[Rfam]
RNA: SAH (S-adenosyl-L-homocysteine) riboswitch aptamer
RNA sequence: CAUUAGCUGAGGAGCGCUGCAACUCCGGUUUACGGAACCAGGCUCAGCAAAUGAAACGGCGCUCGUUCCAA
Numbered sequence: 001c002a003u004u005a006g007c008u009g010a011g012g013a014g015c016g017c018u019g020c021a022a023c024u025c026c027g028g029u030u031u032a033c034g035g036a037a038c039c040a041g042g043c044u045c046a047g048c049a050a051a052u053g054a055a056a057c058g059g060c061g062c063u064c065g066u067u068c069c070a071a
Base pairs, nucleotide, nucleotide: 004050006048007047008046009045010044024036025035026034027033
Dot-bracket structure: ...(.(((((.............((((.....)))).......))))).).....................